The record is a 119-nucleotide RNA from Glycine soja, which matches "MIR4374 microRNA precursor family" in Rfam.

RNA sequence: CUAAAACGGUGCUUACCUCAGCAACGUCUUUGAAAGUAUGCAUUCUAAGACGUUGCUUAAAUAAGCAACAUCUUAGAAUGCCUAUUUUUAAAGACGUUGCUGAGGUAAGCACUGUCUUU
Numbered sequence: 001c002u003a004a005a006a007c008g009g010u011g012c013u014u015a016c017c018u019c020a021g022c023a024a025c026g027u028c029u030u031u032g033a034a035a036g037u038a039u040g041c042a043u044u045c046u047a048a049g050a051c052g053u054u055g056c057u058u059a060a061a062u063a064a065g066c067a068a069c070a071u072c073u074u075a076g077a078a079u080g081c082c083u084a085u086u087u088u089u090a091a092a093g094a095c096g097u098u099g100c101u102g103a104g105g106u107a108a109g110c111a112c113u114g115u116c117u118u119u
Stems, first nucleotide, its partner, number of pairs: 004117001006115002009112012022099017041080010052069001054067004
Dot-bracket structure: ...(.((.((((((((((((.(((((((((((((((((..((((((((((.(.((((......)))).).))))))))))..))))))))))))))))).)))))))))))).)).)..
The organism belongs to Glycine subgen. Soja, within Eukaryota.